Description: The record is a 538-nucleotide part of an RNA from Actinopolymorpha singaporensis, which matches "Bacterial small subunit ribosomal RNA" in Rfam.
RNA sequence: UCAACGGAGAGUUUGAUCCUGGCUCAGGACGAACGCUGGCGGCGUGCUUAACACAUGCAAGUCGAGCGGAAAGGCCCUUCGGGGUACUCGAGCGGCGAACGGGUGAGUAACACGUGAGCAACCUGCCUUCAGCUCUGGGAUAAGCCUGGGAAACUGGGUCUAAUACCGGAUAUGACCUCUGCCUGCAUGGGUGGUGGUGGAAAGAUUUAUCGGCUGAAGAUGGGCUCGCGGCCUAUCAGCUUGUUGGUGGGGUGAUGGCCUACCAAGGCUUUUACGGGUAGCCGGCCUGAGAGGGCGACCGGCCACACUGGGACUGAGACACGGCCCAGACUCCUACGGGAGGCAGCAGUGGGGAAUAUUGCACAAUGGGCGGAAGCCUGAUGCAGCAACGCCGCGUGAGGGAUGACGGCCUUCGGGUUGUAAACCUCUUUCAGCGGGGACGAAGCGUGAGUGACGGUACCCGCAGAAGAAGCGCCGGCCAACUACGUGCCAGCAGCCGCGGUAACACGUAGGGCGCGAGCGUUGUCCGGAAUUAUUG
Numbered sequence: 001u002c003a004a005c006g007g008a009g010a011g012u013u014u015g016a017u018c019c020u021g022g023c024u025c026a027g028g029a030c031g032a033a034c035g036c037u038g039g040c041g042g043c044g045u046g047c048u049u050a051a052c053a054c055a056u057g058c059a060a061g062u063c064g065a066g067c068g069g070a071a072a073g074g075c076c077c078u079u080c081g082g083g084g085u086a087c088u089c090g091a092g093c094g095g096c097g098a099a100c101g102g103g104u105g106a107g108u109a110a111c112a113c114g115u116g117a118g119c120a121a122c123c124u125g126c127c128u129u130c131a132g133c134u135c136u137g138g139g140a141u142a143a144g145c146c147u148g149g150g151a152a153a154c155u156g157g158g159u160c161u162a163a164u165a166c167c168g169g170a171u172a173u174g175a176c177c178u179c180u181g182c183c184u185g186c187a188u189g190g191g192u193g194g195u196g197g198u199g200g201a202a203a204g205a206u207u208u209a210u211c212g213g214c215u216g217a218a219g220a221u222g223g224g225c226u227c228g229c230g231g232c233c234u235a236u237c238a239g240c241u242u243g244u245u246g247g248u249g250g251g252g253u254g255a256u257g258g259c260c261u262a263c264c265a266a267g268g269c270u271u272u273u274a275c276g277g278g279u280a281g282c283c284g285g286c287c288u289g290a291g292a293g294g295g296c297g298a299c300c301g302g303c304c305a306c307a308c309u310g311g312g313a314c315u316g317a318g319a320c321a322c323g324g325c326c327c328a329g330a331c332u333c334c335u336a337c338g339g340g341a342g343g344c345a346g347c348a349g350u351g352g353g354g355a356a357u358a359u360u361g362c363a364c365a366a367u368g369g370g371c372g373g374a375a376g377c378c379u380g381a382u383g384c385a386g387c388a389a390c391g392c393c394g395c396g397u398g399a400g401g402g403a404u405g406a407c408g409g410c411c412u413u414c415g416g417g418u419u420g421u422a423a424a425c426c427u428c429u430u431u432c433a434g435c436g437g438g439g440a441c442g443a444a445g446c447g448u449g450a451g452u453g454a455c456g457g458u459a460c461c462c463g464c465a466g467a468a469g470a471a472g473c474g475c476c477g478g479c480c481a482a483c484u485a486c487g488u489g490c491c492a493g494c495a496g497c498c499g500c501g502g503u504a505a506c507a508c509g510u511a512g513g514g515c516g517c518g519a520g521c522g523u524u525g526u527c528c529g530g531a532a533u534u535a536u537u538g
Stems, first nucleotide, its partner, number of pairs: 009025005027528004032524006039395006045388002047353001052351003056348003061096003066093002069089002074085004103306003113230007122223002127219007135169004144159006175198003179194006204211002232278003239269003244266008281303004285296004308329005331342004359385001361384003367380005398428004408419004432469001434464005442455001472517005483512005493500002
Description: The literature on the family includes a 2001 paper in Science by Yusupov et al., "Crystal structure of the ribosome at 5.5 A resolution".